[Rfam]
Shown here is a 74-nucleotide sequence from Leptolyngbya sp. NIES-3755, a member of the family "tRNA". From the family's description: Transfer RNA (tRNA) molecules are approximately 80 nucleotides in length. The match comes from Rfam's covariance-model search (65 bits). It is annotated as a transfer RNA.
RNA sequence: GGGUUCGUAGCUCUAAUUGGGAGAGCGCUUGUCUUGCACACAAGAGGUUGCGGGUUCAAAUCCCGCCGAAUCCA
Numbered sequence: 001g002g003g004u005u006c007g008u009a010g011c012u013c014u015a016a017u018u019g020g021g022a023g024a025g026c027g028c029u030u031g032u033c034u035u036g037c038a039c040a041c042a043a044g045a046g047g048u049u050g051c052g053g054g055u056u057c058a059a060a061u062c063c064c065g066c067c068g069a070a071u072c073c074a
Base pairs, nucleotide, nucleotide: 001073002072003071004070005069006068007067010026011025012024013023028044029043030042031041032040050066051065052064053063054062